[Rfam]
Record summary:
Shown here is a 155-nucleotide RNA sequence from Populus tomentosa, a member of the family "MIR2912 microRNA precursor family". The source organism's lineage runs through Eukaryota, Pentapetalae, rosids, fabids and Populus. Its family is annotated with RISC complex and miRNA-mediated post-transcriptional gene silencing in the Gene Ontology.
RNA sequence: UCUAGAAUUCAAGAUAUGGGCUGAACACUGAACAAUUUCUGGGCUGCAGGACAGAUUCAAACUUCUCCAUUGUUACUAUAAUUUGGACUUGAAAACGACCUUUUUAAAUCUUAGACUCCUAUGAAAGUUGUAGGCCUAUGUCUUACCUUUCCAUC
Numbered sequence: 001u002c003u004a005g006a007a008u009u010c011a012a013g014a015u016a017u018g019g020g021c022u023g024a025a026c027a028c029u030g031a032a033c034a035a036u037u038u039c040u041g042g043g044c045u046g047c048a049g050g051a052c053a054g055a056u057u058c059a060a061a062c063u064u065c066u067c068c069a070u071u072g073u074u075a076c077u078a079u080a081a082u083u084u085g086g087a088c089u090u091g092a093a094a095a096c097g098a099c100c101u102u103u104u105u106a107a108a109u110c111u112u113a114g115a116c117u118c119c120u121a122u123g124a125a126a127g128u129u130g131u132a133g134g135c136c137u138a139u140g141u142c143u144u145a146c147c148u149u150u151c152c153a154u155c
Stems, first nucleotide, its partner, number of pairs: 003153001005151003009145001011144010021133003025129001027128003035122002041119003045115001048112004054105002063097001072088003